[Rfam]
RNA sequence: GUGGGCGUUGUCACCGUCCAGCCGACGGCUGUGCCCGUCGUCACCGAAUUGCCUGGCCGCACCAGUGCCUUCCUCGUCGCGCAAGUGCGUGCACGGGUCGACGGCAUCGUGCUGCGCCGCGAGUUCACGGAAGGUGGCGAGGUCAAGGCCGGUCAGCGUCUGUACAAGAUCGA
Numbered sequence: 001g002u003g004g005g006c007g008u009u010g011u012c013a014c015c016g017u018c019c020a021g022c023c024g025a026c027g028g029c030u031g032u033g034c035c036c037g038u039c040g041u042c043a044c045c046g047a048a049u050u051g052c053c054u055g056g057c058c059g060c061a062c063c064a065g066u067g068c069c070u071u072c073c074u075c076g077u078c079g080c081g082c083a084a085g086u087g088c089g090u091g092c093a094c095g096g097g098u099c100g101a102c103g104g105c106a107u108c109g110u111g112c113u114g115c116g117c118c119g120c121g122a123g124u125u126c127a128c129g130g131a132a133g134g135u136g137g138c139g140a141g142g143u144c145a146a147g148g149c150c151g152g153u154c155a156g157c158g159u160c161u162g163u164a165c166a167a168g169a170u171c172g173a
Stems, first nucleotide, its partner, number of pairs: 003054005008047003011043001013041002016038001018037001021034002023031002055150004059143002063139001066136003072133001074131002079092004094121002097118001099116002102114005157172002159169003
The family of this 173-nucleotide RNA sequence from Paraburkholderia sediminicola is "Burkholderia RNA 14". On this family, see Ramos et al., Genomics 2013: "Experimental identification of small non-coding regulatory RNAs in the opportunistic human pathogen Burkholderia cenocepacia J2315". Co-purified with Hfq, expression confirmed by Northern blot. Putative functional homologue of PA-SraF. Overlaps coding sequence. The source organism's lineage runs through Bacteria, Pseudomonadati, Burkholderiales, Burkholderiaceae and Paraburkholderia. By type it is a small RNA. Pairs were carried over by alignment from the consensus structure, which was predicted with RNAfold.